[Rfam]
RNA sequence: ACACGCGAAGGGAGGUGGUCCAAAGCAUGAAUUGCCAUAGGACUCGUGAGGUGGCGGCGGGCUGACCGCCAACCACUGAGAAGUGGGACAAGUGGUCGGCCAGUACCACGCCGCCACCGGGCCCGCGGGCAGCCAGGUCAGUCCGCCUGGCCCAGAGUUCGACCGCCCGGUCGUGUUCUGGAAGCGUCCGCGGGCUUCUUUCC
Numbered sequence: 001a002c003a004c005g006c007g008a009a010g011g012g013a014g015g016u017g018g019u020c021c022a023a024a025g026c027a028u029g030a031a032u033u034g035c036c037a038u039a040g041g042a043c044u045c046g047u048g049a050g051g052u053g054g055c056g057g058c059g060g061g062c063u064g065a066c067c068g069c070c071a072a073c074c075a076c077u078g079a080g081a082a083g084u085g086g087g088a089c090a091a092g093u094g095g096u097c098g099g100c101c102a103g104u105a106c107c108a109c110g111c112c113g114c115c116a117c118c119g120g121g122c123c124c125g126c127g128g129g130c131a132g133c134c135a136g137g138u139c140a141g142u143c144c145g146c147c148u149g150g151c152c153c154a155g156a157g158u159u160c161g162a163c164c165g166c167c168c169g170g171u172c173g174u175g176u177u178c179u180g181g182a183a184g185c186g187u188c189c190g191c192g193g194g195c196u197u198c199u200u201u202c203c
Stems, first nucleotide, its partner, number of pairs: 015058002018055002060101007068093002119197012133150006
RNA: Actinobacteria sRNA Ms_IGR-5
Organism: Kribbella turkmenica